[Rfam]
RNA: tRNA
Organism: Magnetospirillum fulvum
RNA sequence: GCCGGUUUAGCUCAGAUGGUAGAGCACCUCACUUGUAAUGAGGGGGCCGCGGGUUCGAUUCCUGCAACCGGCA
Numbered sequence: 001g002c003c004g005g006u007u008u009a010g011c012u013c014a015g016a017u018g019g020u021a022g023a024g025c026a027c028c029u030c031a032c033u034u035g036u037a038a039u040g041a042g043g044g045g046g047c048c049g050c051g052g053g054u055u056c057g058a059u060u061c062c063u064g065c066a067a068c069c070g071g072c073a
Base pairs, nucleotide, nucleotide: 001072002071003070004069005068006067007066010025011024012023013022027043028042029041030040031039049065050064051063052062053061